RNA sequence: GAGGGUAGGCCCCUCGGAAUCGGAGUGCAGGCUCAGGUUCCAAACCGCCUCGAGCUGCGUGGGUUAAGAGCCCAGGUGGUGAGCGUCGAAGGAAAAGGCGCGGCGUGACUGCGUCAGGU
Numbered sequence: 001g002a003g004g005g006u007a008g009g010c011c012c013c014u015c016g017g018a019a020u021c022g023g024a025g026u027g028c029a030g031g032c033u034c035a036g037g038u039u040c041c042a043a044a045c046c047g048c049c050u051c052g053a054g055c056u057g058c059g060u061g062g063g064u065u066a067a068g069a070g071c072c073c074a075g076g077u078g079g080u081g082a083g084c085g086u087c088g089a090a091g092g093a094a095a096a097g098g099c100g101c102g103g104c105g106u107g108a109c110u111g112c113g114u115c116a117g118g119u
Base pairs, nucleotide, nucleotide: 001015002014003013004012005011016041017040018039019038020037021036023034024033025032026031046118048092049091050089051088052087053086054080055079057077058076061073062072063071064070097115098114099113100112101111102110
Shown here is a 119-nucleotide RNA from Engelhardtia mirabilis, a member of the family "Group II catalytic intron D1-D4-2". Lineage of the source: Bacteria > Pseudomonadati > Planctomycetota > Planctomycetia > Engelhardtia. On this family, see Chu et al., EMBO J 2001: "Control of branch-site choice by a group II intron". The match comes from Rfam's covariance-model search (112 bits). Gene Ontology term of the family: Group II intron splicing. Rfam's curators write: Group II introns are found in rRNA, tRNA and mRNA of organelles in fungi, plants and protists, and also in mRNA in bacteria. Pairs were carried over by alignment from the consensus structure.